Shown here is a 139-nucleotide RNA sequence from Echinops telfairi, a member of the family "Small nucleolar RNA SNORA13". Its family is annotated with RNA processing and nucleolus in the Gene Ontology. The organism belongs to Echinops, within Eukaryota. By type it is an H/ACA-box small nucleolar RNA. ACA13 is a member of the H/ACA class of snoRNA that guide the sites of modification of uridines to pseudouridines.

RNA sequence: GGCCUUUGUGUUGCCCAUUCACGUACGGAAACUAGUGAGCGUGGUGUCAAGAAAGGUGCAAGUUAAACACCCUCACUCACAGCCACGUUAUGCUUUUGAAUUUGGUUUCUUUGGCAUAGGAGCUGCCUAAGGAACAGUU
Numbered sequence: 001g002g003c004c005u006u007u008g009u010g011u012u013g014c015c016c017a018u019u020c021a022c023g024u025a026c027g028g029a030a031a032c033u034a035g036u037g038a039g040c041g042u043g044g045u046g047u048c049a050a051g052a053a054a055g056g057u058g059c060a061a062g063u064u065a066a067a068c069a070c071c072c073u074c075a076c077u078c079a080c081a082g083c084c085a086c087g088u089u090a091u092g093c094u095u096u097u098g099a100a101u102u103u104g105g106u107u108u109c110u111u112u113g114g115c116a117u118a119g120g121a122g123c124u125g126c127c128u129a130a131g132g133a134a135c136a137g138u139u
Stems, first nucleotide, its partner, number of pairs: 002057006009049002012046004016041001018039005071132003080125004088121002091118002094114002098109002
Dot-bracket structure: .((((((.((.(((((.(((((............))))).).)))).))..)))))).............(((......((((....((.((.((..((........))...))..)).))))))....))).......